[Rfam]
RNA: Small nucleolar RNA SNORD25
RNA sequence: AGAACAGUGAUGAUGAGUCUAUAGACCUGUAAUGAUUUGCAAAUAUAAUCGCAAAUCAUUUUGAACAUCUAAGGGACUGAGUUUGU
Numbered sequence: 001a002g003a004a005c006a007g008u009g010a011u012g013a014u015g016a017g018u019c020u021a022u023a024g025a026c027c028u029g030u031a032a033u034g035a036u037u038u039g040c041a042a043a044u045a046u047a048a049u050c051g052c053a054a055a056u057c058a059u060u061u062u063g064a065a066c067a068u069c070u071a072a073g074g075g076a077c078u079g080a081g082u083u084u085g086u
Stems, first nucleotide, its partner, number of pairs: 002084004